[Rfam]
RNA sequence: UCCCCGGCUGGGCCGGCUGAGUCCGCAGCACUUGGCCUAAGUGUUCCUCUGCAGAAGGGACAGGCCCAGCACCGGGGG
Numbered sequence: 001u002c003c004c005c006g007g008c009u010g011g012g013c014c015g016g017c018u019g020a021g022u023c024c025g026c027a028g029c030a031c032u033u034g035g036c037c038u039a040a041g042u043g044u045u046c047c048u049c050u051g052c053a054g055a056a057g058g059g060a061c062a063g064g065c066c067c068a069g070c071a072c073c074g075g076g077g078g
Stems, first nucleotide, its partner, number of pairs: 001078007010067005017035006044060005
Dot-bracket structure: (((((((..(((((..((((((.......))))))........(((((.......)))))..)))))....)))))))
A member of the RNA family "bZIP non canonical Hac1/Xbp1 intron", 78 nucleotides long. bZIP intron RNA is a non-canonical intron that was first reported in HAC1 gene in yeast and XBP1 gene in Metazoa. By type it is a small RNA. The base pairs follow the family's consensus structure, which was predicted with RNAfold. The literature on the family includes a 2011 paper in RNA Biol by Hooks and Griffiths-Jones, "Conserved RNA structures in the non-canonical Hac1/Xbp1 intron".